[Rfam]
RNA: Phenylalanine leader peptide
RNA sequence: CUUUGGACCCAAAUUUUUUUUUUUUCCCUUUUUUUUUUUUUUUUUAAAAAACCCCAAAUUGGGGGGAAAAAAAAAAGGGGGGAAAAAAAGGGGGGGGGAAACCCCCCGGGGGCUUUUUUUUU
Numbered sequence: 001c002u003u004u005g006g007a008c009c010c011a012a013a014u015u016u017u018u019u020u021u022u023u024u025u026c027c028c029u030u031u032u033u034u035u036u037u038u039u040u041u042u043u044u045u046a047a048a049a050a051a052c053c054c055c056a057a058a059u060u061g062g063g064g065g066g067a068a069a070a071a072a073a074a075a076a077g078g079g080g081g082g083a084a085a086a087a088a089a090g091g092g093g094g095g096g097g098g099a100a101a102c103c104c105c106c107c108g109g110g111g112g113c114u115u116u117u118u119u120u121u122u
Stems, first nucleotide, its partner, number of pairs: 016089004021084014036069004043051003053063004098116003102112004